[Rfam]
RNA sequence: GGGUGGGGACGAGUGUUCCCACCCGCACUGACACCGGUACCUGAUCCGGCCGGUGCAG
Numbered sequence: 001g002g003g004u005g006g007g008g009a010c011g012a013g014u015g016u017u018c019c020c021a022c023c024c025g026c027a028c029u030g031a032c033a034c035c036g037g038u039a040c041c042u043g044a045u046c047c048g049g050c051c052g053g054u055g056c057a058g
Base pairs, nucleotide, nucleotide: 001024002023003022004021005020006019007018008017009016028058029057030056032055033054034053035052036051037050038049
Rfam assigns this 58-nucleotide RNA from Actinopolymorpha pittospori to the family "L17-Actino-Proteobacteria ribosomal protein leader". By type it is a cis-regulatory leader. It scores 60 bits against the family's covariance model. On this family, see Eckert and Weinberg, BMC Microbiol 2020: "Discovery of 20 novel ribosomal leader candidates in bacteria and archaea". The organism belongs to Actinopolymorpha, within Bacteria.